The record is an 82-nucleotide sequence from Denticeps clupeoides, which matches "mir-460 microRNA precursor family" in Rfam. Pairs were carried over by alignment from the consensus structure, which was predicted with RNAalifold. The literature on the family includes a 2005 paper in Genes Dev by Chen et al., "The developmental miRNA profiles of zebrafish as determined by small RNA cloning".
RNA sequence: CUUCCCAGUAUCCUCAUUGUGCAUGCUGUGUGUGUGUUUGACUGCUGUCUCACACAGCGCCUGCAAUGUGGAGGCUGUGAGG
Numbered sequence: 001c002u003u004c005c006c007a008g009u010a011u012c013c014u015c016a017u018u019g020u021g022c023a024u025g026c027u028g029u030g031u032g033u034g035u036g037u038u039u040g041a042c043u044g045c046u047g048u049c050u051c052a053c054a055c056a057g058c059g060c061c062u063g064c065a066a067u068g069u070g071g072a073g074g075c076u077g078u079g080a081g082g
Stems, first nucleotide, its partner, number of pairs: 012071002015068007024059001026057006